[Rfam]
RNA sequence: GUGAGUUGGAGCGCUUAUGAGCGUAGCGAAUAACUCUCAUGCGCUCCAACGACCUGCCCCGCUCGCAUAAGCGAGAGGGGCGAUACCGAUU
Numbered sequence: 001g002u003g004a005g006u007u008g009g010a011g012c013g014c015u016u017a018u019g020a021g022c023g024u025a026g027c028g029a030a031u032a033a034c035u036c037u038c039a040u041g042c043g044c045u046c047c048a049a050c051g052a053c054c055u056g057c058c059c060c061g062c063u064c065g066c067a068u069a070a071g072c073g074a075g076a077g078g079g080g081c082g083a084u085a086c087c088g089a090u091u
Stems, first nucleotide, its partner, number of pairs: 008047006016032003021027001056081003060077001062075001065072002
The family of this 91-nucleotide sequence is "GA-cis RNA". By type it is a small RNA.